[Rfam]
RNA sequence: UAAUUUAUUUAGGAUAUAUCCAUAUUUAGUUAUGGUAGCUCUCAUAUCUGACUGCUCAGAAUCAUCAAUUAUUGUGUAAAUAAUAAUUUUUUAAGAUUUUAAUUAGAAU
Numbered sequence: 001u002a003a004u005u006u007a008u009u010u011a012g013g014a015u016a017u018a019u020c021c022a023u024a025u026u027u028a029g030u031u032a033u034g035g036u037a038g039c040u041c042u043c044a045u046a047u048c049u050g051a052c053u054g055c056u057c058a059g060a061a062u063c064a065u066c067a068a069u070u071a072u073u074g075u076g077u078a079a080a081u082a083a084u085a086a087u088u089u090u091u092u093a094a095g096a097u098u099u100u101a102a103u104u105a106g107a108a109u
Stems, first nucleotide, its partner, number of pairs: 004107004008102002012098001015095001018092001024087002027083001029081003
RNA: MIR480 microRNA precursor family
Organism: Populus tomentosa